[Rfam]
RNA sequence: UAGAAAAUAGGGCAUGGUGUUCGCCCGAUGAAACUGCAUGAAUGCUGAUGACACCUAUCCGGAG
Numbered sequence: 001u002a003g004a005a006a007a008u009a010g011g012g013c014a015u016g017g018u019g020u021u022c023g024c025c026c027g028a029u030g031a032a033a034c035u036g037c038a039u040g041a042a043u044g045c046u047g048a049u050g051a052c053a054c055c056u057a058u059c060c061g062g063a064g
Stems, first nucleotide, its partner, number of pairs: 010026004016055006036045003
Rfam assigns this 64-nucleotide RNA sequence from Lactobacillus selangorensis to the family "Fluoride riboswitch aptamer (crcB RNA motif)". Its family is annotated with positive regulation of gene expression and response to fluoride in the Gene Ontology. The match comes from Rfam's covariance-model search (39 bits). Lineage of the source: Bacteria > Bacillati > Bacillota > Lactobacillaceae > Lactobacillus.